RNA sequence: CUACUGGACGCUGUAGCUACUGAACUGUUUUGUCCCUCUCUGUCAAAGAACAAUUUCUUCUCUGUCAGAGAGUGAUAGAACACUUCAAUAGCUAAAGCGUCCAGUAAC
Numbered sequence: 001c002u003a004c005u006g007g008a009c010g011c012u013g014u015a016g017c018u019a020c021u022g023a024a025c026u027g028u029u030u031u032g033u034c035c036c037u038c039u040c041u042g043u044c045a046a047a048g049a050a051c052a053a054u055u056u057c058u059u060c061u062c063u064g065u066c067a068g069a070g071a072g073u074g075a076u077a078g079a080a081c082a083c084u085u086c087a088a089u090a091g092c093u094a095a096a097g098c099g100u101c102c103a104g105u106a107a108c
Base pairs, nucleotide, nucleotide: 002106003105004104005103006102011097012096014094015093016092017091018090019089021087022086023085024084026082027081028080029069030068031067032066034064049059050058052056